This 82-nucleotide RNA sequence from Carassius auratus belongs to the Rfam family "Small nucleolar RNA SNORD71". Pairs were carried over by alignment from the consensus structure, which was predicted with RNAalifold. Rfam's curators write: snoRNA HBII-239 belongs to the family of C/D snoRNAs.It is the human orthologue of the mouse MBII-239 described and is predicted to guide 2'O-ribose methylation of 5.8S rRNA on residue U14. By type it is an H/ACA-box small nucleolar RNA. Its family is annotated with nucleolus and RNA processing in the Gene Ontology. For this family Rfam cites "RNomics: an experimental approach that identifies 201 candidates for novel, small, non-messenger RNAs in mouse" (Huttenhofer et al., EMBO J, 2001). Lineage of the source: Eukaryota > Clupeocephala > Otomorpha > Cyprininae > Carassius. The match comes from Rfam's covariance-model search (34 bits).
RNA sequence: AUGCUGUUGAGUGAUGAAGACUUUGAGUGAUCCAUCGACUGACUGUUUCAAAUGUUGAUCUCAUUAUUUCUGACAUCAGCUU
Numbered sequence: 001a002u003g004c005u006g007u008u009g010a011g012u013g014a015u016g017a018a019g020a021c022u023u024u025g026a027g028u029g030a031u032c033c034a035u036c037g038a039c040u041g042a043c044u045g046u047u048u049c050a051a052a053u054g055u056u057g058a059u060c061u062c063a064u065u066a067u068u069u070c071u072g073a074c075a076u077c078a079g080c081u082u
Base pairs, nucleotide, nucleotide: 003080004079005078006077008075009071013032014031015030017028035058036057037056038055039054044050045049